The family of this 69-nucleotide RNA sequence from Mycolicibacterium austroafricanum is "Transposase-2 RNA".

[Rfam]
RNA sequence: GAAACGUCAACCCCGCACCACCACCCGGUGGACCAGACGGGGACCGCCUCACCGCAAGGCGAGGCUGCC
Numbered sequence: 001g002a003a004a005c006g007u008c009a010a011c012c013c014c015g016c017a018c019c020a021c022c023a024c025c026c027g028g029u030g031g032a033c034c035a036g037a038c039g040g041g042g043a044c045c046g047c048c049u050c051a052c053c054g055c056a057a058g059g060c061g062a063g064g065c066u067g068c069c
Stems, first nucleotide, its partner, number of pairs: 011042005018031005046065005052059002

It scores 63 bits against the family's covariance model. Rfam classes the family as a small RNA. Pairs were carried over by alignment from the consensus structure, which is taken from published work.